The family of this 138-nucleotide RNA from Orycteropus afer is "Small Cajal body specific RNA 21". Lineage of the source: Eukaryota > Eumetazoa > Craniata > Orycteropus > Orycteropus afer. The base pairs follow the family's consensus structure, which was predicted with RNAalifold. The literature on the family includes a 2002 paper in EMBO J by Darzacq et al., "Cajal body-specific small nuclear RNAs: a novel class of 2'-O-methylation and pseudouridylation guide RNAs". The family's RNA type in Rfam is small Cajal body RNA. Rfam's curators write: scaRNAs are a specific class of small nuclear RNAs which localise to the Cajal bodies and guide the modification of RNA polymerase II transcribed spliceosomal RNAs U1, U2, U4, U5 and U12. ACA68 (SCARNA21) is a member of the H/ACA class of snoRNAs that guide the sites of modification of uridines to pseudouridines.
RNA sequence: UGGCUCGGUUUCCUGGGCAGUGGACUCAGUCUCCUCCACCUCCCCUCAGACGAGCCUAGAGUAGAAAGGCUGGGCUUCUUCCCCAUGGGAAAGGCUUCAAGAAAGGAACCUUGCCCAAGCUGUUCUAGCUUUACAUUU
Numbered sequence: 001u002g003g004c005u006c007g008g009u010u011u012c013c014u015g016g017g018c019a020g021u022g023g024a025c026u027c028a029g030u031c032u033c034c035u036c037c038a039c040c041u042c043c044c045c046u047c048a049g050a051c052g053a054g055c056c057u058a059g060a061g062u063a064g065a066a067a068g069g070c071u072g073g074g075c076u077u078c079u080u081c082c083c084c085a086u087g088g089g090a091a092a093g094g095c096u097u098c099a100a101g102a103a104a105g106g107a108a109c110c111u112u113g114c115c116c117a118a119g120c121u122g123u124u125c126u127a128g129c130u131u132u133a134c135a136u137u138u
Stems, first nucleotide, its partner, number of pairs: 002056006015044003020039005066132005072126003078119003087111003